[Rfam]
RNA: Acido-Lenti-1 RNA
RNA sequence: CCCAGGGCUUUGCCCUGGGCUAUCAUCCUGCGGCCCUUCAGGCCG
Numbered sequence: 001c002c003c004a005g006g007g008c009u010u011u012g013c014c015c016u017g018g019g020c021u022a023u024c025a026u027c028c029u030g031c032g033g034c035c036c037u038u039c040a041g042g043c044c045g
Base pairs, nucleotide, nucleotide: 001019002018003017004016005015006014007013008012032044033043034042035041